[Rfam]
Rfam assigns this 235-nucleotide sequence from Aureibacillus halotolerans to the family "BsrG". It scores 60 bits against the family's covariance model. Rfam classes the family as a small RNA. On this family, see Jahn et al., Mol Microbiol 2012: "BsrG/SR4 from Bacillus subtilis--the first temperature-dependent type I toxin-antitoxin system". Taxonomically the source falls in Aureibacillus (Bacteria, Bacillati, Bacillota, Bacilli). Pairs were carried over by alignment from the consensus structure, which was predicted with WAR.
RNA sequence: CAACACUAUCGGACUCUUAGGUGGAUUGGCACUCCUUAUGAAGGGGAUGGUACCUUAUGACUACAUUUAAAGCUUUGACUUUGAUGUUAGCAUUUGGGACACUUAUUUUCUUGAUUUCUACAAGAAAAAAGUAAUCCGCCUACAGAGUUAAGGACUCAGGCGGAUUACUUUCGCUCGUUGGCCAAUCCAUAAUGGACCUUAUGUUGCUGAGUCACGAGUGUUCAUGCACUCGUGA
Numbered sequence: 001c002a003a004c005a006c007u008a009u010c011g012g013a014c015u016c017u018u019a020g021g022u023g024g025a026u027u028g029g030c031a032c033u034c035c036u037u038a039u040g041a042a043g044g045g046g047a048u049g050g051u052a053c054c055u056u057a058u059g060a061c062u063a064c065a066u067u068u069a070a071a072g073c074u075u076u077g078a079c080u081u082u083g084a085u086g087u088u089a090g091c092a093u094u095u096g097g098g099a100c101a102c103u104u105a106u107u108u109u110c111u112u113g114a115u116u117u118c119u120a121c122a123a124g125a126a127a128a129a130a131g132u133a134a135u136c137c138g139c140c141u142a143c144a145g146a147g148u149u150a151a152g153g154a155c156u157c158a159g160g161c162g163g164a165u166u167a168c169u170u171u172c173g174c175u176c177g178u179u180g181g182c183c184a185a186u187c188c189a190u191a192a193u194g195g196a197c198c199u200u201a202u203g204u205u206g207c208u209g210a211g212u213c214a215c216g217a218g219u220g221u222u223c224a225u226g227c228a229c230u231c232g233u234g235a
Stems, first nucleotide, its partner, number of pairs: 001206005011197001014147004018142004024136004030049002033047005059118002064113002072087002096110004157177001159175001186196004212235010